[Rfam]
RNA: Small nucleolar RNA SNORA48
Organism: Rattus norvegicus
RNA sequence: UUCUCCUGACAAUGGGCAAAGAGUCACCUUGGUGGUGGUGGUGUUCUUAUAUCAGUCAGGGGCAGAGCAGAUGGCUGUCUUUUGUUUAUCCUAGCUUGGUUCCUGGCUUGGUGGCCAAAGCUGUUUUAUACAUAGGACUCAUAA
Numbered sequence: 001u002u003c004u005c006c007u008g009a010c011a012a013u014g015g016g017c018a019a020a021g022a023g024u025c026a027c028c029u030u031g032g033u034g035g036u037g038g039u040g041g042u043g044u045u046c047u048u049a050u051a052u053c054a055g056u057c058a059g060g061g062g063c064a065g066a067g068c069a070g071a072u073g074g075c076u077g078u079c080u081u082u083u084g085u086u087u088a089u090c091c092u093a094g095c096u097u098g099g100u101u102c103c104u105g106g107c108u109u110g111g112u113g114g115c116c117a118a119a120g121c122u123g124u125u126u127u128a129u130a131c132a133u134a135g136g137a138c139u140c141a142u143a144a
Base pairs, nucleotide, nucleotide: 001064003062004061005060006059007058008057013054014053015052019048020047021046023042024041025040026039027038028037084138085137086136087135099131100130104128105127106126109123110122112120